[Rfam]
RNA sequence: UGCCACACCUGGCAAUGGGCAAAGAGUCACCUUGUUGGUGGGGUUGCUCUUACAUAAGGCAGGGACAGAGCAGAUGGCAGUCCUUUGUUCAUCCUAGCUUGAUGCCUGGCUUGGUGACCAAAGAUGUUUUAUGGCUGAGACUCAUAA
Numbered sequence: 001u002g003c004c005a006c007a008c009c010u011g012g013c014a015a016u017g018g019g020c021a022a023a024g025a026g027u028c029a030c031c032u033u034g035u036u037g038g039u040g041g042g043g044u045u046g047c048u049c050u051u052a053c054a055u056a057a058g059g060c061a062g063g064g065a066c067a068g069a070g071c072a073g074a075u076g077g078c079a080g081u082c083c084u085u086u087g088u089u090c091a092u093c094c095u096a097g098c099u100u101g102a103u104g105c106c107u108g109g110c111u112u113g114g115u116g117a118c119c120a121a122a123g124a125u126g127u128u129u130u131a132u133g134g135c136u137g138a139g140a141c142u143c144a145u146a147a
Base pairs, nucleotide, nucleotide: 001067002066004064008063009062010061011060016057018055022051023050024049026045028043030041031040087141088140089139101135103133107131108130109129112126113125115123
Rfam assigns this 147-nucleotide RNA sequence from Mus musculus to the family "Small nucleolar RNA SNORA48". From the family's description: The snoRNA ACA 48 has been identified to guide pseudouridylation of the residue U3797 in the 28S rRNA subunit. NCBI's taxonomy places the organism under Eukaryota, Eumetazoa, Sarcopterygii, Eutheria, Mus. The literature on the family includes a 1997 paper in J Mol Biol by Ofengand and Bakin, "Mapping to nucleotide resolution of pseudouridine residues in large subunit ribosomal RNAs from representative eukaryotes, prokaryotes, archaebacteria, mitochondria and chloroplasts". Its family is annotated with nucleolus and RNA processing in the Gene Ontology. The family's RNA type in Rfam is H/ACA-box small nucleolar RNA.